[Rfam]
RNA sequence: UGCAAGGGCACUCUGUGUUAUACAUCCUAAAUAUGAUAAUUACAAUUUGUUACCUUGCUACAUAAAAUCUGCUGAACCCUAUUCCGGACAGCUUUGAAGUUGUCGUUCGGUCAUAUUGGCAGAAACAUUUU
Numbered sequence: 001u002g003c004a005a006g007g008g009c010a011c012u013c014u015g016u017g018u019u020a021u022a023c024a025u026c027c028u029a030a031a032u033a034u035g036a037u038a039a040u041u042a043c044a045a046u047u048u049g050u051u052a053c054c055u056u057g058c059u060a061c062a063u064a065a066a067a068u069c070u071g072c073u074g075a076a077c078c079c080u081a082u083u084c085c086g087g088a089c090a091g092c093u094u095u096g097a098a099g100u101u102g103u104c105g106u107u108c109g110g111u112c113a114u115a116u117u118g119g120c121a122g123a124a125a126c127a128u129u130u131u
Stems, first nucleotide, its partner, number of pairs: 002058006010050002014044003017040005023035002064130003068123002071120003075117002084110006091103002
Dot-bracket structure: .((((((..((..((((((((.((.........))))))).)))....))..)))))).....(((.((.(((.((.......((((((.((.........)).)))))).....))))).))....))).
RNA: Small nucleolar RNA psi18S-841/snoR66
Organism: Bombyx mori